[Rfam]
RNA: raiA RNA
Organism: Lancefieldella rimae
RNA sequence: CCUUUCCAGGUCUGUGGUUGCGAGCAGACGAGAAUGUGUGAUUGCAGGGAUGUGUAAAUACACAAACGACGUAAAUGCGCAGGUGUCCGCUUUAGUCCAAGGCAGACGAGGUCAAAAGGAUCCACGUAAGUUUGAAACCCAAGAGCGGUUCCAAACGAGCAUGGCUCGUCCUAGAAGUAAGUCGCACCGUCUGAUAUAUUUGAGACAGGUAGUCUCACAGACGAGAGAGCUUUGAGUGAUAGUGUUUCUUGAGCAAACUCUUGAGCAAACGCUCCAGUGCGCGAGUGUGGGGUCAAAUACCAGGUCAGCUGGAAAGG
Numbered sequence: 001c002c003u004u005u006c007c008a009g010g011u012c013u014g015u016g017g018u019u020g021c022g023a024g025c026a027g028a029c030g031a032g033a034a035u036g037u038g039u040g041a042u043u044g045c046a047g048g049g050a051u052g053u054g055u056a057a058a059u060a061c062a063c064a065a066a067c068g069a070c071g072u073a074a075a076u077g078c079g080c081a082g083g084u085g086u087c088c089g090c091u092u093u094a095g096u097c098c099a100a101g102g103c104a105g106a107c108g109a110g111g112u113c114a115a116a117a118g119g120a121u122c123c124a125c126g127u128a129a130g131u132u133u134g135a136a137a138c139c140c141a142a143g144a145g146c147g148g149u150u151c152c153a154a155a156c157g158a159g160c161a162u163g164g165c166u167c168g169u170c171c172u173a174g175a176a177g178u179a180a181g182u183c184g185c186a187c188c189g190u191c192u193g194a195u196a197u198a199u200u201u202g203a204g205a206c207a208g209g210u211a212g213u214c215u216c217a218c219a220g221a222c223g224a225g226a227g228a229g230c231u232u233u234g235a236g237u238g239a240u241a242g243u244g245u246u247u248c249u250u251g252a253g254c255a256a257a258c259u260c261u262u263g264a265g266c267a268a269a270c271g272c273u274c275c276a277g278u279g280c281g282c283g284a285g286u287g288u289g290g291g292g293u294c295a296a297a298u299a300c301c302a303g304g305u306c307a308g309c310u311g312g313a314a315a316g317g
Base pairs, nucleotide, nucleotide: 001317002316003315004314005313006312007311008310009309012308013307014306015302016301017300018299099288101286102112105170106169107168108167109166110165121164122163131154132153134151135150162295183281184280185279186278187277188223189222190221191220192219227274228273229272230271236266237265244258245257246256247255